[Rfam]
RNA sequence: UGAUGCUAAACGCUUAAUUCAUAAGAAGCGGGGGACCCAGUUAAAGGGGUGAAUCCAUAUUGCAUGGAAGGGUUAUCUUUCGAUCCUAACCCGUCAGCUAACCUCGUAAGCGUUGAAAGAGGAGGA
Numbered sequence: 001u002g003a004u005g006c007u008a009a010a011c012g013c014u015u016a017a018u019u020c021a022u023a024a025g026a027a028g029c030g031g032g033g034g035a036c037c038c039a040g041u042u043a044a045a046g047g048g049g050u051g052a053a054u055c056c057a058u059a060u061u062g063c064a065u066g067g068a069a070g071g072g073u074u075a076u077c078u079u080u081c082g083a084u085c086c087u088a089a090c091c092c093g094u095c096a097g098c099u100a101a102c103c104u105c106g107u108a109a110g111c112g113u114u115g116a117a118a119g120a121g122g123a124g125g126a
Stems, first nucleotide, its partner, number of pairs: 011112004018027003028107006038046001047092003055067004070086004

A member of the RNA family "c-di-AMP riboswitch aptamer (ydaO/yuaA leader)" from Thermoanaerobacterium sp. RBIITD, 126 nucleotides long. The source organism's lineage runs through Bacteria, Bacillati, Bacillota, Clostridia and Thermoanaerobacterium.